[Rfam]
RNA sequence: UAUGCAGGGAUUGUGUGUAUCGGCGUUGUGCAAAAUCAAUGCACGGUGUCCGAAAGUGUUUCCUGCAACAACGAUUUCAUAUGGGGAAGGUGGGCAGUUGUGUUUCAUUCCUUCUGUUGAAACUUCAACAAUCAUCUUCCCCACAUUC
Numbered sequence: 001u002a003u004g005c006a007g008g009g010a011u012u013g014u015g016u017g018u019a020u021c022g023g024c025g026u027u028g029u030g031c032a033a034a035a036u037c038a039a040u041g042c043a044c045g046g047u048g049u050c051c052g053a054a055a056g057u058g059u060u061u062c063c064u065g066c067a068a069c070a071a072c073g074a075u076u077u078c079a080u081a082u083g084g085g086g087a088a089g090g091u092g093g094g095c096a097g098u099u100g101u102g103u104u105u106c107a108u109u110c111c112u113u114c115u116g117u118u119g120a121a122a123c124u125u126c127a128a129c130a131a132u133c134a135u136c137u138u139c140c141c142c143a144c145a146u147u148c
Stems, first nucleotide, its partner, number of pairs: 004066007015044006083142011097129004

Overview
small nucleolar RNA snoR135: a 148-nucleotide RNA from Rhododendron williamsianum. It is annotated as an H/ACA-box small nucleolar RNA. NCBI's taxonomy places the organism under Eukaryota, Streptophytina, Euphyllophyta, Magnoliopsida, Rhododendron. On this family, see Chen and Wu, Nucleic Acids Res 2009: "Mining small RNA sequencing data: a new approach to identify small nucleolar RNAs in Arabidopsis".